[Rfam]
RNA: Alphaproteobacterial sRNA ar35
RNA sequence: ACCAAUUAGCGAGACGAUGAACAUUAGAGCCAAUGUCGUCGACGGCGGCUGUUUCGCAUUGCAUGCCCAUAAGAGUGACCACGGAUGUACUGGCACUUGUGAUUGGGAUCAGAAAGGUCGGGCUAGCCCGACCUUUUUCGUU
Numbered sequence: 001a002c003c004a005a006u007u008a009g010c011g012a013g014a015c016g017a018u019g020a021a022c023a024u025u026a027g028a029g030c031c032a033a034u035g036u037c038g039u040c041g042a043c044g045g046c047g048g049c050u051g052u053u054u055c056g057c058a059u060u061g062c063a064u065g066c067c068c069a070u071a072a073g074a075g076u077g078a079c080c081a082c083g084g085a086u087g088u089a090c091u092g093g094c095a096c097u098u099g100u101g102a103u104u105g106g107g108a109u110c111a112g113a114a115a116g117g118u119c120g121g122g123c124u125a126g127c128c129c130g131a132c133c134u135u136u137u138u139c140g141u142u
Stems, first nucleotide, its partner, number of pairs: 004060003011055005066107004070099001073098001076095002079093003108141002111138012